[Rfam]
Shown here is an 82-nucleotide RNA from Galemys pyrenaicus, a member of the family "ctgf/hcs24 CAESAR". The family's consensus secondary structure is taken from published work.
RNA sequence: AUGGUGACAUGGCAUAAAGCCAGAAAGAGUGAGAGACAUUAACUCUGUAGGUUGUAACUUGAACUGAUUCACAUCUCAUUUU
Numbered sequence: 001a002u003g004g005u006g007a008c009a010u011g012g013c014a015u016a017a018a019g020c021c022a023g024a025a026a027g028a029g030u031g032a033g034a035g036a037c038a039u040u041a042a043c044u045c046u047g048u049a050g051g052u053u054g055u056a057a058c059u060u061g062a063a064c065u066g067a068u069u070c071a072c073a074u075c076u077c078a079u080u081u082u
Base pairs, nucleotide, nucleotide: 004077006075007074010022011021012020013019029072030071031070032069
The organism belongs to Galemys, within Eukaryota.
Gene Ontology term of the family: negative regulation of gene expression.
A search with the family's covariance model found it, with a score of 89 bits.
The 3' UTR of human connective tissue growth factor/hypertrophic chondrocyte specific 24 (ctgf/hcs24) mRNA has been shown to repress ctgf gene expression. Reference identified a minimal RNA element, predicted to form a stable secondary structure, which acts as a post-transcriptional cis-acting element of structure-anchored repression (CAESAR), probably through direct interactions with as yet unknown nuclear factors.
The literature on the family includes a 1999 paper in FEBS Lett by Kubota et al., "Involvement of cis-acting repressive element(s) in the 3'-untranslated region of human connective tissue growth factor gene".